The family of this 31-nucleotide RNA from Ignelater luminosus is "Iron response element II". About the family: IRE, TFRC, SLC40A1, SDHB, SLC11A2, CDC42BPA, ACO2, ALAS2_H.SAPIENS, CDC14A, EPAS1, ALAS2, qoxD, Hao1, NDUFS1, transferrin, Aconitate. The base pairs follow the family's consensus structure, which is taken from published work. Rfam classes the family as a cis-regulatory element.

[Rfam]
RNA sequence: AGUACUUCCUUAGCAGUGCCUAAGAAGUACA
Numbered sequence: 001a002g003u004a005c006u007u008c009c010u011u012a013g014c015a016g017u018g019c020c021u022a023a024g025a026a027g028u029a030c031a
Base pairs, nucleotide, nucleotide: 002030003029004028005027006026007025009024010023011022012021013020014018
On this family, see Koeller et al., Proc Natl Acad Sci U S A 1989: "A cytosolic protein binds to structural elements within the iron regulatory region of the transferrin receptor mRNA". Rfam 15.1 lists 5,197 matches to the family in 722 species.